Notes: A member of the RNA family "Acido-Lenti-1 RNA" from Sulfuriroseicoccus oceanibius, 45 nucleotides long. NCBI's taxonomy places the organism under Bacteria, Pseudomonadati, Verrucomicrobiia, Verrucomicrobiaceae, Sulfuriroseicoccus. It scores 37 bits against the family's covariance model.
RNA sequence: CCCACGGCGUUGCCGUGGGCUGCGCUAGUUCGCACCUCCGGUGCU
Numbered sequence: 001c002c003c004a005c006g007g008c009g010u011u012g013c014c015g016u017g018g019g020c021u022g023c024g025c026u027a028g029u030u031c032g033c034a035c036c037u038c039c040g041g042u043g044c045u
Stems, first nucleotide, its partner, number of pairs: 001019008032044005